[Rfam]
A member of the RNA family "MIR9560 microRNA precursor family" from Raphanus sativus, 98 nucleotides long.
The organism belongs to Raphanus, within Eukaryota.

RNA sequence: GUGUGUAUUGACAGGUGGUGGAACAAAUAUGAGUUUUUGAAUACUAGUCAAAACAAAAUUUAAACUCAUAUUAGUUCUGCCUCCUGCUGAAGCCCACA
Numbered sequence: 001g002u003g004u005g006u007a008u009u010g011a012c013a014g015g016u017g018g019u020g021g022a023a024c025a026a027a028u029a030u031g032a033g034u035u036u037u038u039g040a041a042u043a044c045u046a047g048u049c050a051a052a053a054c055a056a057a058a059u060u061u062a063a064a065c066u067c068a069u070a071u072u073a074g075u076u077c078u079g080c081c082u083c084c085u086g087c088u089g090a091a092g093c094c095c096a097c098a
Base pairs, nucleotide, nucleotide: 001097002096003095005093006092008090009089010088012086013085014084015083017081018080019079020078021077022076023075024074026072027071028070029069030068031067032066033065034064035063036062